The family of this 104-nucleotide RNA sequence from Stackebrandtia albiflava is "ZMP/ZTP riboswitch aptamer (pfl RNA motif)". Rfam links the family to the GO terms one-carbon metabolic process and regulation of purine nucleotide biosynthetic process.

RNA sequence: UGUCGGGGUCGCGACUGGCGCCAAGGCGGUGACACGCCGAGGGUGGGAUACCACCGGGGAGCGACACGAGCAGCAGACUGAGGUCGAACGCCUGGGCCGUAGGU
Numbered sequence: 001u002g003u004c005g006g007g008g009u010c011g012c013g014a015c016u017g018g019c020g021c022c023a024a025g026g027c028g029g030u031g032a033c034a035c036g037c038c039g040a041g042g043g044u045g046g047g048a049u050a051c052c053a054c055c056g057g058g059g060a061g062c063g064a065c066a067c068g069a070g071c072a073g074c075a076g077a078c079u080g081a082g083g084u085c086g087a088a089c090g091c092c093u094g095g096g097c098c099g100u101a102g103g104u
Base pairs, nucleotide, nucleotide: 003070006067008065009064010063011062012061015058016057017092018091019090020089043054044053045052046051082098083097084096085095